[Rfam]
A member of the RNA family "Small nucleolar RNA U49" from Papaver somniferum, 66 nucleotides long. A search with the family's covariance model found it, with a score of 62 bits. By type it is a C/D-box small nucleolar RNA.
RNA sequence: UCCCAAUGAGGAAGCGAACCCAAAAGAUAGGAAGUGCCGUAUGACACUCUUAAACGCAGCAGUUUG
Numbered sequence: 001u002c003c004c005a006a007u008g009a010g011g012a013a014g015c016g017a018a019c020c021c022a023a024a025a026g027a028u029a030g031g032a033a034g035u036g037c038c039g040u041a042u043g044a045c046a047c048u049c050u051u052a053a054a055c056g057c058a059g060c061a062g063u064u065u066g
Stems, first nucleotide, its partner, number of pairs: 014060002031050001033048004

NCBI's taxonomy places the organism under Eukaryota, Streptophyta, Streptophytina, Magnoliopsida, Papaver.
Rfam 15.1 lists 340 matches to the family in 152 species.
Pairs were carried over by alignment from the consensus structure, which was predicted with CMfinder.